A member of the RNA family "rhtB sRNA" from Pelagibacterales bacterium SAG-MED16, 83 nucleotides long. The organism belongs to Candidatus Pelagibacterales, within Bacteria. A search with the family's covariance model found it, with a score of 76 bits. The base pairs follow the family's consensus structure, which is taken from published work. The literature on the family includes a 2009 paper in BMC Genomics by Meyer et al., "Identification of candidate structured RNAs in the marine organism 'Candidatus Pelagibacter ubique'".

RNA sequence: AUGAUAUUAUCACUUUUAGAUAGUCCUAUCUAGCCAUCUUUAGCUCCCGGUUUUUUAGGACUAUCCUAAGAUGCUUCCAUUAA
Numbered sequence: 001a002u003g004a005u006a007u008u009a010u011c012a013c014u015u016u017u018a019g020a021u022a023g024u025c026c027u028a029u030c031u032a033g034c035c036a037u038c039u040u041u042a043g044c045u046c047c048c049g050g051u052u053u054u055u056u057a058g059g060a061c062u063a064u065c066c067u068a069a070g071a072u073g074c075u076u077c078c079a080u081u082a083a
Base pairs, nucleotide, nucleotide: 019065020064021063022062023061024060025059026058027057032052033051034050035049